[Rfam]
RNA: Selenocysteine transfer RNA
RNA sequence: GGGGGUGGAUUGGGCCUGGUGGCCUGCCUGGACUUCAAAUCCAGUGGGAGGCGGUGAUCCCGUCUUCGGUGGGUUCGAUUCCCACACACUCCC
Number, nucleotide and partner (000 for none) at each position: 001g093002g092003g091004g090005g089006u088007g087008g085009a000010u000011u026012g025013g024014g023015c022016c021017u000018g000019g000020u000021g016022g015023c014024c013025u012026g011027c000028c044029u043030g042031g041032a040033c000034u000035u000036c000037a000038a000039a000040u032041c031042c030043a029044g028045u000046g000047g067048g066049a065050g064051g063052c000053g000054g000055u000056g000057a000058u000059c000060c000061c000062g000063u051064c050065u049066u048067c047068g000069g000070u084071g083072g082073g081074u000075u000076c000077g000078a000079u000080u000081c073082c072083c071084a070085c008086a000087c007088a006089c005090u004091c003092c002093c001